A member of the RNA family "Glycine riboswitch aptamer" from Desulforamulus reducens, 92 nucleotides long. NCBI's taxonomy places the organism under Bacteria, Bacillati, Bacillota, Eubacteriales, Desulforamulus reducens. A search with the family's covariance model found it, with a score of 36 bits.

[Rfam]
RNA sequence: AACUCUGGAGAGUUCUUGCCAAUGGCAGUUAGGCAAGACACCAAAGGGGAAGCUUCAAAGGAAGUCAUCUCUCAGGUUACAAGGACAGAGUU
Dot-bracket structure: (((((((......(((((((...........))))))).(((.(..(((...((........))....))))..)))........)))))))
Numbered sequence: 001a002a003c004u005c006u007g008g009a010g011a012g013u014u015c016u017u018g019c020c021a022a023u024g025g026c027a028g029u030u031a032g033g034c035a036a037g038a039c040a041c042c043a044a045a046g047g048g049g050a051a052g053c054u055u056c057a058a059a060g061g062a063a064g065u066c067a068u069c070u071c072u073c074a075g076g077u078u079a080c081a082a083g084g085a086c087a088g089a090g091u092u
Stems, first nucleotide, its partner, number of pairs: 001092007014038007040077003044072001047071003053064002